About this RNA: This 30-nucleotide sequence from Clostridium homopropionicum belongs to the Rfam family "CRISPR RNA direct repeat element". Its family is annotated with defense response in the Gene Ontology. NCBI's taxonomy places the organism under Bacteria, Bacillati, Bacillota, Clostridiaceae, Clostridium homopropionicum.
[Rfam]
RNA sequence: AUUUAAAUACAUCUUAUGUUAAAGUUCAGC
Dot-bracket structure: ........((((...))))...........